RNA sequence: UUAUCUGAGCAGGGGGACUACAGUGUAGUUGAGAAGGCAAAACCUGACCCUUUGAACCUGUUGGCUAAUACCAACGUAGGGAGCUGAAUAAUACGAUAC
Numbered sequence: 001u002u003a004u005c006u007g008a009g010c011a012g013g014g015g016g017a018c019u020a021c022a023g024u025g026u027a028g029u030u031g032a033g034a035a036g037g038c039a040a041a042a043c044c045u046g047a048c049c050c051u052u053u054g055a056a057c058c059u060g061u062u063g064g065c066u067a068a069u070a071c072c073a074a075c076g077u078a079g080g081g082a083g084c085u086g087a088a089u090a091a092u093a094c095g096a097u098a099c
Stems, first nucleotide, its partner, number of pairs: 006087001008085003011051004016045001017029005036044002057080004061074004
Overview: Rfam assigns this 99-nucleotide RNA from Sporofaciens musculi to the family "TPP riboswitch aptamer (THI element)". The source organism's lineage runs through Bacteria, Clostridia, Lachnospirales, Lachnospiraceae and Sporofaciens. A search with the family's covariance model found it, with a score of 66 bits.